[Rfam]
A member of the RNA family "glmS glucosamine-6-phosphate activated ribozyme aptamer" from Caloramator mitchellensis, 192 nucleotides long. Rfam links the family to the GO terms catalytic activity and regulation of gene expression. From the family's description: This entry contains a glucosamine-6-phosphate activated ribozyme that is found in the mRNA for GlmS. GlmS is an enzyme that uses fructose-6-phosphate and glutamine to generate glucosamine-6-phosphate. The ribozyme catalyses self cleavage of the glmS mRNA that is thought to regulate GlmS activity. It scores 102 bits against the family's covariance model. Taxonomically the source falls in Caloramator (Bacteria, Bacillati, Bacillota, Eubacteriales). It is annotated as a riboswitch.
RNA sequence: CUACUAGUAAAAGCGCCGGGGCUUAUAGGUGACAUUCACUUGAUUUCUUGACUUCUUGAGUUGUUUGUCAAUUAUAAGCUGACGAGGACAGGGUUGAUCGAAUUUUCGGCGGAUGCCCUGCGGCUGACCACCGUUAGCUAACCCACAAAACCAUGGAGCAAUCCUUGGGACAAAAGGGAAGCAGGUUGAAAA
Numbered sequence: 001c002u003a004c005u006a007g008u009a010a011a012a013g014c015g016c017c018g019g020g021g022c023u024u025a026u027a028g029g030u031g032a033c034a035u036u037c038a039c040u041u042g043a044u045u046u047c048u049u050g051a052c053u054u055c056u057u058g059a060g061u062u063g064u065u066u067g068u069c070a071a072u073u074a075u076a077a078g079c080u081g082a083c084g085a086g087g088a089c090a091g092g093g094u095u096g097a098u099c100g101a102a103u104u105u106u107c108g109g110c111g112g113a114u115g116c117c118c119u120g121c122g123g124c125u126g127a128c129c130a131c132c133g134u135u136a137g138c139u140a141a142c143c144c145a146c147a148a149a150a151c152c153a154u155g156g157a158g159c160a161a162u163c164c165u166u167g168g169g170a171c172a173a174a175a176g177g178g179a180a181g182c183a184g185g186u187u188g189a190a191a192a
Stems, first nucleotide, its partner, number of pairs: 020080008089120005098109004121133003137182003142177002151168003155164003